[Rfam]
RNA sequence: GCUCGAUGCCCGAUAUAACUCAACAGGACAGAAGCGGGGGACCCACCCGCGCGGGAAUAACUUCCGGCGCAACGCGGACCCUCAUAUUCGAGACCGCUAGGGGUGAAGCCGCGCACCGCGGCCAGGCGCUUGAACCCCCUCAGCCUGAACCCGACAGCUCACCCCGCAGACGUAGAACAAGAGAGGA
Numbered sequence: 001g002c003u004c005g006a007u008g009c010c011c012g013a014u015a016u017a018a019c020u021c022a023a024c025a026g027g028a029c030a031g032a033a034g035c036g037g038g039g040g041a042c043c044c045a046c047c048c049g050c051g052c053g054g055g056a057a058u059a060a061c062u063u064c065c066g067g068c069g070c071a072a073c074g075c076g077g078a079c080c081c082u083c084a085u086a087u088u089c090g091a092g093a094c095c096g097c098u099a100g101g102g103g104u105g106a107a108g109c110c111g112c113g114c115a116c117c118g119c120g121g122c123c124a125g126g127c128g129c130u131u132g133a134a135c136c137c138c139c140u141c142a143g144c145c146u147g148a149a150c151c152c153g154a155c156a157g158c159u160c161a162c163c164c165c166g167c168a169g170a171c172g173u174a175g176a177a178c179a180a181g182a183g184a185g186g187a
Stems, first nucleotide, its partner, number of pairs: 001171001003169001007033001009031001034167006044100001101152003109121004124146004